Shown here is a 180-nucleotide sequence from Pterocles burchelli, a member of the family "Small Cajal body specific RNA 16". It is annotated as a small Cajal body RNA. Taxonomically the source falls in Pterocles (Eukaryota, Dipnotetrapodomorpha, Sauria, Pteroclidae).
RNA sequence: CCGGGCUGGGGAAGGGCUCCUGGGUGGCAGGGCCAGUGGGCUCAGCCUCAUACCAGCCAGCCUCACCCGUGCCCGAGAUCAACUCCCAGGUGAGCUCUGUGCUUAGGCUCACCCUGUGCAGUACCAGGUGUGAGCAUUCAUGCAGCCUUUUGAUGGUCAUGUAUGAUACUGCAGACAACG
Numbered sequence: 001c002c003g004g005g006c007u008g009g010g011g012a013a014g015g016g017c018u019c020c021u022g023g024g025u026g027g028c029a030g031g032g033c034c035a036g037u038g039g040g041c042u043c044a045g046c047c048u049c050a051u052a053c054c055a056g057c058c059a060g061c062c063u064c065a066c067c068c069g070u071g072c073c074c075g076a077g078a079u080c081a082a083c084u085c086c087c088a089g090g091u092g093a094g095c096u097c098u099g100u101g102c103u104u105a106g107g108c109u110c111a112c113c114c115u116g117u118g119c120a121g122u123a124c125c126a127g128g129u130g131u132g133a134g135c136a137u138u139c140a141u142g143c144a145g146c147c148u149u150u151u152g153a154u155g156g157u158c159a160u161g162u163a164u165g166a167u168a169c170u171g172c173a174g175a176c177a178a179c180g
Base pairs, nucleotide, nucleotide: 003074004073005072006071008068009067010066015062016061017060018059020056021055022054024053025052026047027046028045030043032041033040034039086107087106089103090102091101092100115175117173118172119171120170121169122168123167125165126164131159132158133157135155136154137153138152142149
The match comes from Rfam's covariance-model search (123 bits).
The family's consensus secondary structure was predicted with RNAfold.
Gene Ontology terms of the family: RNA processing and nucleolus.
About the family: scaRNAs are a specific class of small nuclear RNAs which localise to the Cajal bodies and guide the modification of RNA polymerase II transcribed spliceosomal RNAs U1, U2, U4, U5 and U12. ACA47 belongs to the H/ACA box class of guide RNAs as it has the predicted hairpin-hinge-hairpin-tail structure, the conserved H/ACA-box motifs and is found associated with GAR1. ACA47 is predicted to guide the pseudouridylation of residue U5 of the U1 spliceosomal snRNA.
The literature on the family includes a 2002 paper in EMBO J by Darzacq et al., "Cajal body-specific small nuclear RNAs: a novel class of 2'-O-methylation and pseudouridylation guide RNAs".